[Rfam]
RNA sequence: GCGAUGAGCUGAAUUGCAUAAGUCGAGUGACACGCCUAUUGGCAAGCACUAUGUGGAGUGCUGUCUCUCGCCGCAAUACGCAAAAAGACGUCCUUCUGGGCGUCUU
Numbered sequence: 001g002c003g004a005u006g007a008g009c010u011g012a013a014u015u016g017c018a019u020a021a022g023u024c025g026a027g028u029g030a031c032a033c034g035c036c037u038a039u040u041g042g043c044a045a046g047c048a049c050u051a052u053g054u055g056g057a058g059u060g061c062u063g064u065c066u067c068u069c070g071c072c073g074c075a076a077u078a079c080g081c082a083a084a085a086a087g088a089c090g091u092c093c094u095u096c097u098g099g100g101c102g103u104c105u106u
Stems, first nucleotide, its partner, number of pairs: 014076004024070004029065003034043002045062002048059003085106009
Dot-bracket structure: .............((((......((((.(((..((......)).((.(((......))).))))).))))..))))........(((((((((....)))))))))
RNA: BsrF
Organism: Bacillus sp. HNG